RNA sequence: UACGAUCACUGGGGGUGCCCGAAAUGCGGGCUGAGAUGAAGGAUGAGACCUUCGGACCCUUUGAACCUGAUCUGGAGUCAUACCAGCGUAGGGAAGUGGUGCCGCAAUCCG
Number, nucleotide and partner (000 for none) at each position: 001u000002a000003c000004g000005a000006u099007c098008a097009c096010u095011g060012g059013g058014g057015g000016u054017g031018c030019c029020c028021g027022a000023a000024a000025u000026g000027c021028g020029g019030g018031c017032u000033g000034a000035g000036a000037u000038g053039a052040a051041g050042g049043a000044u000045g000046a000047g000048a000049c042050c041051u040052u039053c038054g016055g000056a000057c014058c013059c012060u011061u000062u000063g000064a000065a000066c092067c091068u090069g089070a000071u000072c086073u085074g084075g083076a000077g000078u000079c000080a000081u000082a000083c075084c074085a073086g072087c000088g000089u069090a068091g067092g066093g000094a000095a010096g009097u008098g007099g006100u000101g000102c000103c000104g000105c000106a000107a000108u000109c000110c000111g000
Rfam assigns this 111-nucleotide RNA from Paenibacillus hemerocallicola to the family "TPP riboswitch aptamer (THI element)". The organism belongs to Paenibacillus, within Bacteria. Rfam describes the family as follows. Vitamin B(1) in its active form thiamin pyrophosphate (TPP) is an essential coenzyme that is synthesised by coupling of pyrimidine and thiazole moieties in bacteria.